[Rfam]
RNA sequence: ACUGCGGAGUGUACAAGAACCUGCAAGUAGAUAUGAUUUCGGUCAAUCAAAAGCAUACACGAUGAAGCAGUAA
Numbered sequence: 001a002c003u004g005c006g007g008a009g010u011g012u013a014c015a016a017g018a019a020c021c022u023g024c025a026a027g028u029a030g031a032u033a034u035g036a037u038u039u040c041g042g043u044c045a046a047u048c049a050a051a052a053g054c055a056u057a058c059a060c061g062a063u064g065a066a067g068c069a070g071u072a073a
Stems, first nucleotide, its partner, number of pairs: 001071005009060005022055003030048003034045002